[Rfam]
About this RNA:
mir-8364 microRNA precursor family: a 61-nucleotide RNA from Pristionchus pacificus. Taxonomically the source falls in Pristionchus (Eukaryota, Opisthokonta, Bilateria, Protostomia). Rfam 15.1 lists 3,320 matches to the family in 2 species. The base pairs follow the family's consensus structure, which was predicted with RNAalifold.

RNA sequence: UCUUCAUUCCGCGUGCUCUCUCACCGGUCAGAGAUGCGAGAGAGUAAGCAGAAUGAAGAAA
Number, nucleotide and partner (000 for none) at each position: 001u059002c058003u057004u056005c055006a054007u053008u000009c000010c000011g000012c048013g000014u046015g045016c044017u043018c000019u041020c040021u039022c038023a000024c000025c000026g000027g000028u000029c000030a000031g000032a000033g000034a000035u000036g000037c000038g022039a021040g020041a019042g000043a017044g016045u015046a014047a000048g012049c000050a000051g000052a000053a007054u006055g005056a004057a003058g002059a001060a000061a000